[Rfam]
RNA sequence: GCCAGAAGAUGACGGUGUGUGCAGAAACCCACCCUGUGGGUUGCGCACAUCUGAGCUCCCCACCUGGU
Numbered sequence: 001g002c003c004a005g006a007a008g009a010u011g012a013c014g015g016u017g018u019g020u021g022c023a024g025a026a027a028c029c030c031a032c033c034c035u036g037u038g039g040g041u042u043g044c045g046c047a048c049a050u051c052u053g054a055g056c057u058c059c060c061c062a063c064c065u066g067g068u
Stems, first nucleotide, its partner, number of pairs: 001068005014051010029039003
Selenocysteine insertion sequence 1: a 68-nucleotide sequence from Neogale vison. On this family, see Lambert et al., Biochimie 2002: "A survey of metazoan selenocysteine insertion sequences". Gene Ontology term of the family: selenocysteine incorporation. Rfam classes the family as a cis-regulatory element. Rfam's curators write: The incorporation of selenocysteine into a protein sequence is directed by an in-frame UGA codon (usually a stop codon) within the coding region of the mRNA. Selenoprotein mRNAs contain a conserved secondary structure in the 3' UTR that is required for the distinction of UGA stop from UGA selenocysteine. The selenocysteine insertion sequence (SECIS) is around 60 nt in length and adopts a hairpin structure which is sufficiently well-defined and conserved to act as a computational screen for selenoprotein genes.